[Rfam]
RNA sequence: AAUGCACAUAAUUGUAAGUUGCUCUGGAUAAGAGCGCCUGCUAAAUGGCAAUAC
Numbered sequence: 001a002a003u004g005c006a007c008a009u010a011a012u013u014g015u016a017a018g019u020u021g022c023u024c025u026g027g028a029u030a031a032g033a034g035c036g037c038c039u040g041c042u043a044a045a046u047g048g049c050a051a052u053a054c
Stems, first nucleotide, its partner, number of pairs: 013043001014041003020036006

This 54-nucleotide sequence from Megalops atlanticus belongs to the Rfam family "UnaL2 LINE 3' element". Rfam links the family to the GO term transposition, RNA-mediated. The eel long interspersed element (LINE) UnaL2 and its partner short interspersed element (SINE) share a conserved 3' tail containing a stem-loop that is critical for their retrotransposition. Presumably, the first step of retrotransposition is the recognition of their 3' tails by UnaL2-encoded reverse transcriptase. The solution structure of a 17-nucleotide RNA derived from the 3' tail of UnaL2 was determined by NMR. The family's RNA type in Rfam is cis-regulatory element.